[Rfam]
RNA: L31-Actinobacteria ribosomal protein leader
RNA sequence: GCGGUUCCGGUUCCCGUCGAUGCCCUCAUAAGAGGAAGUUGACGACCCGGCGGCC
Numbered sequence: 001g002c003g004g005u006u007c008c009g010g011u012u013c014c015c016g017u018c019g020a021u022g023c024c025c026u027c028a029u030a031a032g033a034g035g036a037a038g039u040u041g042a043c044g045a046c047c048c049g050g051c052g053g054c055c
Stems, first nucleotide, its partner, number of pairs: 003055003007050004015044007